[Rfam]
RNA: mir-16 microRNA precursor family
Organism: Diceros bicornis
RNA sequence: ACCUUACUUCAGCAGCACAGUUAAUACUGGAGAUAAUUUUAUAACCUUAACGCCAAUAUUUACGUGCUGCUAAGGCACUGC
Numbered sequence: 001a002c003c004u005u006a007c008u009u010c011a012g013c014a015g016c017a018c019a020g021u022u023a024a025u026a027c028u029g030g031a032g033a034u035a036a037u038u039u040u041a042u043a044a045c046c047u048u049a050a051c052g053c054c055a056a057u058a059u060u061u062a063c064g065u066g067c068u069g070c071u072a073a074g075g076c077a078c079u080g081c
Stems, first nucleotide, its partner, number of pairs: 002080001005077001007075001010074001011071008021062001023060004028055003